[Rfam]
Shown here is a 116-nucleotide RNA from Oryza sativa, a member of the family "Small nucleolar RNA snoR100". Rfam classes the family as an H/ACA-box small nucleolar RNA. Lineage of the source: Eukaryota > Streptophyta > Spermatophyta > Liliopsida > Oryza sativa. The sequence is in the family's curated seed alignment. Pairs were carried over by alignment from the consensus structure, which was predicted with WAR.

RNA sequence: AGAGGAAGGAAGCAUGGUAGUGUGUACAGAGAUGGAUUGAUUUUGUUGGUCUGCAUGUCUGCCUGCGGUGAUGCCUUCGGGCUUUGAUCUCGCGGGCCUGGAUUUGACCCACACUU
Numbered sequence: 001a002g003a004g005g006a007a008g009g010a011a012g013c014a015u016g017g018u019a020g021u022g023u024g025u026a027c028a029g030a031g032a033u034g035g036a037u038u039g040a041u042u043u044u045g046u047u048g049g050u051c052u053g054c055a056u057g058u059c060u061g062c063c064u065g066c067g068g069u070g071a072u073g074c075c076u077u078c079g080g081g082c083u084u085u086g087a088u089c090u091c092g093c094g095g096g097c098c099u100g101g102a103u104u105u106g107a108c109c110c111a112c113a114c115u116u
Stems, first nucleotide, its partner, number of pairs: 012025004048098004057088003061082003